[Rfam]
RNA sequence: GAUAAUGGGGGUGAAAAACCCCCACGCCGAAAACCCAAGGUUUCCUACGCAACGUUAAUCGGCGUAGGGUGAGUCGGCCCCUAAGGCGAGGCAGAAAUGCGUAGCCGAUGGGAAACAGGUUAAUAUUCCUGUACCACUUAUAACUGCGAUGGGGGGACGGAGAAGGCUAGGCCAGCCGGGCGUUGGAUGUCCCGGUUUAAGCAAGUAGGUAGGCCCUUUAGGUAAAUCCGGGGGUUAUUACUGAGAUGCGAUGACGAGCCCUCUUUUGGGCGAAGUGGUUGAUGCCAUACUUCCAGGAAAAGCCUCUAAGCUUCAGGUUAUAUGUGACCGUACCCCAAACCGACACAGGUGGGUGAGGAGAGAAUCCUAAGGCGCU
Number, nucleotide and partner (000 for none) at each position: 001g000002a000003u000004a000005a000006u024007g023008g022009g021010g020011g019012u000013g000014a000015a000016a000017a000018a000019c011020c010021c009022c008023c007024a006025c374026g373027c372028c371029g000030a000031a000032a000033a354034c353035c352036c351037a000038a000039g334040g333041u000042u000043u000044c068045c067046u066047a065048c064049g063050c000051a000052a000053c061054g060055u000056u000057a000058a000059u000060c054061g053062g000063c049064g048065u047066a046067g045068g044069g000070u000071g000072a000073g000074u000075c330076g329077g328078c000079c000080c111081c110082u000083a000084a000085g106086g105087c104088g000089a102090g000091g100092c099093a098094g000095a000096a000097a000098u093099g092100c091101g000102u089103a000104g087105c086106c085107g000108a000109u000110g081111g080112g000113a000114a000115a132116c131117a130118g129119g128120u000121u000122a000123a000124u000125a000126u000127u000128c119129c118130u117131g116132u115133a000134c000135c326136a325137c324138u000139u322140a321141u320142a319143a318144c317145u316146g311147c310148g000149a000150u000151g306152g305153g304154g303155g000156g000157a000158c000159g293160g292161a291162g290163a000164a000165g286166g285167c284168u000169a000170g280171g279172c278173c277174a276175g196176c195177c194178g193179g192180g191181c000182g000183u000184u000185g000186g000187a000188u000189g000190u000191c180192c179193c178194g177195g176196u175197u254198u253199a000200a000201g249202c248203a247204a000205g000206u000207a000208g242209g241210u240211a000212g000213g236214c000215c234216c233217u232218u231219u230220a000221g229222g228223u000224a000225a000226a000227u000228c222229c221230g219231g218232g217233g216234g215235u000236u213237a000238u000239u000240a210241c209242u208243g000244a000245g000246a000247u203248g202249c201250g000251a000252u000253g198254a197255c000256g000257a000258g271259c270260c269261c268262u000263c000264u000265u000266u000267u000268g261269g260270g259271c258272g000273a000274a000275g000276u174277g173278g172279u171280u170281g000282a000283u000284g167285c166286c165287a000288u000289a000290c162291u161292u160293c159294c000295a000296g000297g000298a000299a000300a000301a000302g000303c154304c153305u152306c151307u000308a000309a000310g147311c146312u000313u000314c000315a000316g145317g144318u143319u142320a141321u140322a139323u000324g137325u136326g135327a000328c077329c076330g075331u000332a000333c040334c039335c000336c000337a000338a000339a000340c349341c348342g000343a000344c000345a000346c000347a000348g341349g340350u000351g036352g035353g034354u033355g000356a368357g367358g366359a365360g000361a000362g000363a000364a000365u359366c358367c357368u356369a000370a000371g028372g027373c026374g025375c000376u000
Notes
The family of this 376-nucleotide part of an RNA from Thiohalophilus thiocyanatoxydans is "Bacterial large subunit ribosomal RNA". The base pairs follow the family's consensus structure, which is taken from published work.